[Rfam]
RNA sequence: CCGACUGUUCCACCACUCGUUCCCUACCCAGACAGGCGUGGCCGGCAACAGCCGGGUCUGAAGCUCUGGGGACAAUGUAACCGCCGAUAUUUCGGUAGGUCGAACCGCGAGGCCAGACUGAAUCUGCCAGCAUCAAGGCGGAGAGGUGC
Numbered sequence: 001c002c003g004a005c006u007g008u009u010c011c012a013c014c015a016c017u018c019g020u021u022c023c024c025u026a027c028c029c030a031g032a033c034a035g036g037c038g039u040g041g042c043c044g045g046c047a048a049c050a051g052c053c054g055g056g057u058c059u060g061a062a063g064c065u066c067u068g069g070g071g072a073c074a075a076u077g078u079a080a081c082c083g084c085c086g087a088u089a090u091u092u093c094g095g096u097a098g099g100u101c102g103a104a105c106c107g108c109g110a111g112g113c114c115a116g117a118c119u120g121a122a123u124c125u126g127c128c129a130g131c132a133u134c135a136a137g138g139c140g141g142a143g144a145g146g147u148g149c
Stems, first nucleotide, its partner, number of pairs: 002019003006015002028069005033060005039054004044049001083096005098119004105112002123142006
Dot-bracket structure: .(((.((......)).)))........((((((((((.((((.(....).)))).)))))....))))).............(((((....))))).((((...((....))...))))...((((((........)))))).......